[Rfam]
RNA sequence: GCCAGAGUCAAUCUAGCAGAAAGAGGCACGCACACAGUUAGGGUACUUAGUUACCGCGAAACCUUUGCCUCGGGAAGGUCUGAGAUAAAGUCGUCCCUUCUUCUCGAAGGGACCACGCUCUAGAAGGGCGAUCCUAUAAAUGGAUGCGAGGAAACCAGAAAUAGCGGGAAACCACCACAAUUCUGUCGCCGUGGAUGCCAGUUUCUCUCCUUCUUCUAUCCGUUCUCUGUCGUUUAUAACGUUUGGCGCUCAUUUUCACGUUCCCUCUUAGCCCUUUUCCGCCUGAUUCCUCUCGCAAGUACCGAGGAAGAAGGGAAACUCGCAGAGGUUAUGUGGUGGGGUCGAUGGAAAUUCUCGCGACUCGCAAUUUCAGUACAAUCUGCAAGCCGUCCCUCCAUGUCCACGUGUUCGUAUCCGUUCAUCCUCGCGGAUGGACAUCGUUCUAAGGUGGUGUGGGUGGGGUGGAACUCAAUUCAGACUAAUCUGACUCUGAC
Numbered sequence: 001g002c003c004a005g006a007g008u009c010a011a012u013c014u015a016g017c018a019g020a021a022a023g024a025g026g027c028a029c030g031c032a033c034a035c036a037g038u039u040a041g042g043g044u045a046c047u048u049a050g051u052u053a054c055c056g057c058g059a060a061a062c063c064u065u066u067g068c069c070u071c072g073g074g075a076a077g078g079u080c081u082g083a084g085a086u087a088a089a090g091u092c093g094u095c096c097c098u099u100c101u102u103c104u105c106g107a108a109g110g111g112a113c114c115a116c117g118c119u120c121u122a123g124a125a126g127g128g129c130g131a132u133c134c135u136a137u138a139a140a141u142g143g144a145u146g147c148g149a150g151g152a153a154a155c156c157a158g159a160a161a162u163a164g165c166g167g168g169a170a171a172c173c174a175c176c177a178c179a180a181u182u183c184u185g186u187c188g189c190c191g192u193g194g195a196u197g198c199c200a201g202u203u204u205c206u207c208u209c210c211u212u213c214u215u216c217u218a219u220c221c222g223u224u225c226u227c228u229g230u231c232g233u234u235u236a237u238a239a240c241g242u243u244u245g246g247c248g249c250u251c252a253u254u255u256u257c258a259c260g261u262u263c264c265c266u267c268u269u270a271g272c273c274c275u276u277u278u279c280c281g282c283c284u285g286a287u288u289c290c291u292c293u294c295g296c297a298a299g300u301a302c303c304g305a306g307g308a309a310g311a312a313g314g315g316a317a318a319c320u321c322g323c324a325g326a327g328g329u330u331a332u333g334u335g336g337u338g339g340g341g342u343c344g345a346u347g348g349a350a351a352u353u354c355u356c357g358c359g360a361c362u363c364g365c366a367a368u369u370u371c372a373g374u375a376c377a378a379u380c381u382g383c384a385a386g387c388c389g390u391c392c393c394u395c396c397a398u399g400u401c402c403a404c405g406u407g408u409u410c411g412u413a414u415c416c417g418u419u420c421a422u423c424c425u426c427g428c429g430g431a432u433g434g435a436c437a438u439c440g441u442u443c444u445a446a447g448g449u450g451g452u453g454u455g456g457g458u459g460g461g462g463u464g465g466a467a468c469u470c471a472a473u474u475c476a477g478a479c480u481a482a483u484c485u486g487a488c489u490c491u492g493a494c
Stems, first nucleotide, its partner, number of pairs: 001494001003492002008487003013386002016383004023071005042055004080477005089362004116130005131145004146358007168343002387465007
Notes: This 494-nucleotide RNA from Frieseomelitta varia belongs to the Rfam family "Nuclear RNase P". The source organism's lineage runs through Eukaryota, Panarthropoda, Neoptera, Aculeata and Frieseomelitta.